[Rfam]
RNA sequence: UGCCGGCCUGUGCCCUUUUUCUGUUGUACUACUGGGAGCUCUCAUUAGCAGUGCAAUAUUAAAAGGGCAUCGGCUGGCA
Numbered sequence: 001u002g003c004c005g006g007c008c009u010g011u012g013c014c015c016u017u018u019u020u021c022u023g024u025u026g027u028a029c030u031a032c033u034g035g036g037a038g039c040u041c042u043c044a045u046u047a048g049c050a051g052u053g054c055a056a057u058a059u060u061a062a063a064a065g066g067g068c069a070u071c072g073g074c075u076g077g078c079a
Stems, first nucleotide, its partner, number of pairs: 001079003005075004010070001012068008022058009
RNA: mir-130 microRNA precursor family